[Rfam]
RNA: U5 spliceosomal RNA
RNA sequence: AACUCUGGCAUCUCCUCACUUGCGGACAAAUCUUUCGCCUUUUACUAAAGAUUUCCGUGUGGAGGUGCAGCACAAUGAGUCUAUAGAGUCAUUUUUGCACUGCCCCGACGCGGCUU
Dot-bracket structure: .((((..((((((((.((.........((((((((...........))))))))...)).))))))))........))))..................(..(((.(...).))).)